[Rfam]
RNA sequence: CUCUUAUUCCGAGUCGGUGGAGGGACAGGCCCAAUGAAACCCGGCAACCAACACUUCGUGUAAGUUUAUAUCUUCACGUUACAUAUAGUGAAAAGGUGCUAACCUGCAAGACUUAUGUCUUGAUCGAUAAGAG
Numbered sequence: 001c002u003c004u005u006a007u008u009c010c011g012a013g014u015c016g017g018u019g020g021a022g023g024g025a026c027a028g029g030c031c032c033a034a035u036g037a038a039a040c041c042c043g044g045c046a047a048c049c050a051a052c053a054c055u056u057c058g059u060g061u062a063a064g065u066u067u068a069u070a071u072c073u074u075c076a077c078g079u080u081a082c083a084u085a086u087a088g089u090g091a092a093a094a095g096g097u098g099c100u101a102a103c104c105u106g107c108a109a110g111a112c113u114u115a116u117g118u119c120u121u122g123a124u125c126g127a128u129a130a131g132a133g
Base pairs, nucleotide, nucleotide: 001133002132003131004130005129006128007127008126013042016041017040018039022032023031024030026106027105028104029103043100044099045098046097048096049095052090053089054088055087107122108121109120110119111118112117